[Rfam]
RNA sequence: UAACAACGCUGGGGGCGUCUGCCAGGGGGCAGGCUGAGAGGAACCCUUGGAACCUGAUCCGGGUCAUGCCGGCGUAGGGAAGCGCAGUAGGGUGGUG
Numbered sequence: 001u002a003a004c005a006a007c008g009c010u011g012g013g014g015g016c017g018u019c020u021g022c023c024a025g026g027g028g029g030c031a032g033g034c035u036g037a038g039a040g041g042a043a044c045c046c047u048u049g050g051a052a053c054c055u056g057a058u059c060c061g062g063g064u065c066a067u068g069c070c071g072g073c074g075u076a077g078g079g080a081a082g083c084g085c086a087g088u089a090g091g092g093u094g095g096u097g
Stems, first nucleotide, its partner, number of pairs: 007084004011047004016041001017034005053078004059072004